[Rfam]
Nucleotides: 095
Stems, first nucleotide, its partner, number of pairs: 003090005009082005016074006024064003033058004041050003
Number, partner (000 for none) and nucleotide at each position: 001000c002000g003090g004089g005088a006087g007086u008000c009082g010081g011080g012079c013078g014000g015000g016074c017073a018072g019071u020070g021069c022000u023000c024064u025063c026062g027000c028000c029000a030000a031000c032000c033058c034057g035056g036055u037000c038000a039000g040000g041050u042049c043048c044000g045000g046000a047000a048043g049042g050041a051000a052000g053000c054000a055036g056035c057034c058033g059000u060000a061000a062026c063025g064024a065000a066000u067000c068000c069021g070020c071019g072018c073017u074016g075000g076000g077000u078013c079012g080011u081010u082009c083000c084000c085000g086007g087006c088005u089004c090003c091000c092000a093000c094000c095000g
Description: This 95-nucleotide RNA from Alphaproteobacteria bacterium PA4 belongs to the Rfam family "Bacterial small signal recognition particle RNA". The family's consensus secondary structure is taken from published work.